[Rfam]
About this RNA:
Purine riboswitch aptamer: a 99-nucleotide sequence from Weeksella virosa.
RNA sequence: UUACAUUUAGUUUACAACAUUUGUAUAGCUCAUAAUAUGGUUGAGUGUUUCUACGGCAGACCUUAAUAAAUUGCCACUACAAAUGAUUUUUUUAGAACA
Numbered sequence: 001u002u003a004c005a006u007u008u009a010g011u012u013u014a015c016a017a018c019a020u021u022u023g024u025a026u027a028g029c030u031c032a033u034a035a036u037a038u039g040g041u042u043g044a045g046u047g048u049u050u051c052u053a054c055g056g057c058a059g060a061c062c063u064u065a066a067u068a069a070a071u072u073g074c075c076a077c078u079a080c081a082a083a084u085g086a087u088u089u090u091u092u093u094a095g096a097a098c099a
Base pairs, nucleotide, nucleotide: 018085019084020083021082022081023080024079025078029045030044031043032042055075056074057073058072059071
The match comes from Rfam's covariance-model search (52 bits). The base pairs follow the family's consensus structure, which is taken from published work.